[Rfam]
RNA sequence: CGAGCGGUCCCGUGCAGUCGCGCCAGCUCGAGUCGAGCUGGUGAGGAAAGUCCGGACACCACCACGCAGCGUGCUCGAUAACCUCGAGGCGGCGGUGUAUCACCGAUGCAUCGCCGACGGAAAGUGCCACAGAAACAACACCGCCACUUCAUGCCACAGCAGGAAGUGGUAAGGGUGAAAUGGUGCGGUAAGAGCGCACCGCACACGUGGUGACACGUGUGGCAGGGCAAACCCCACGCGGUGCAAGACCGAGCAGAUGCGUUCGCCCUGUGCGUGGCAGGCGCUCUUCGAGCAACCCGAAGAGCACGCAUCGGGUAGGUCGCGCAAGAGGCAUGCAGCAAUGCAUCGCCCAAGGCACAUGACUGCAUCAGCAUCCCUCCCACUGGCGGGAGAAUGCUGGACAGAAUCCGGCUUAUAGGGCCGCUCGCUCU
Numbered sequence: 001c002g003a004g005c006g007g008u009c010c011c012g013u014g015c016a017g018u019c020g021c022g023c024c025a026g027c028u029c030g031a032g033u034c035g036a037g038c039u040g041g042u043g044a045g046g047a048a049a050g051u052c053c054g055g056a057c058a059c060c061a062c063c064a065c066g067c068a069g070c071g072u073g074c075u076c077g078a079u080a081a082c083c084u085c086g087a088g089g090c091g092g093c094g095g096u097g098u099a100u101c102a103c104c105g106a107u108g109c110a111u112c113g114c115c116g117a118c119g120g121a122a123a124g125u126g127c128c129a130c131a132g133a134a135a136c137a138a139c140a141c142c143g144c145c146a147c148u149u150c151a152u153g154c155c156a157c158a159g160c161a162g163g164a165a166g167u168g169g170u171a172a173g174g175g176u177g178a179a180a181u182g183g184u185g186c187g188g189u190a191a192g193a194g195c196g197c198a199c200c201g202c203a204c205a206c207g208u209g210g211u212g213a214c215a216c217g218u219g220u221g222g223c224a225g226g227g228c229a230a231a232c233c234c235c236a237c238g239c240g241g242u243g244c245a246a247g248a249c250c251g252a253g254c255a256g257a258u259g260c261g262u263u264c265g266c267c268c269u270g271u272g273c274g275u276g277g278c279a280g281g282c283g284c285u286c287u288u289c290g291a292g293c294a295a296c297c298c299g300a301a302g303a304g305c306a307c308g309c310a311u312c313g314g315g316u317a318g319g320u321c322g323c324g325c326a327a328g329a330g331g332c333a334u335g336c337a338g339c340a341a342u343g344c345a346u347c348g349c350c351c352a353a354g355g356c357a358c359a360u361g362a363c364u365g366c367a368u369c370a371g372c373a374u375c376c377c378u379c380c381c382a383c384u385g386g387c388g389g390g391a392g393a394a395u396g397c398u399g400g401a402c403a404g405a406a407u408c409c410g411g412c413u414u415a416u417a418g419g420g421c422c423g424c425u426c427g428c429u430c431u
Base pairs, nucleotide, nucleotide: 001427002426003425004424005423006422007421008420009419010418012416013367014366015365016364017363018362019361021043022042023041024040025039026038027037028036029035048414049413050412052411053410054409055408056407057243058242059241060240069239070238071237072236073235074088075087076086077085078084089118090116091115092114093113094112095111096110097109098108099107100106101105119234120233124232125231126228127227128226141174142173143170144169145168146167147166148165149164150163182200183199184198185197186196187195201223202221203220204219205218206217207216208215209214247321248320249319250318256312257311258310259309260308261307286302287301288300289299290298330350331349332348333346334345335344336343337342

Rfam assigns this 431-nucleotide RNA from bacterium HR20 to the family "Bacterial RNase P class A". Rfam links the family to the GO terms tRNA processing, ribonuclease P activity and dimeric ribonuclease P complex. Rfam classes the family as a ribozyme. It scores 258 bits against the family's covariance model.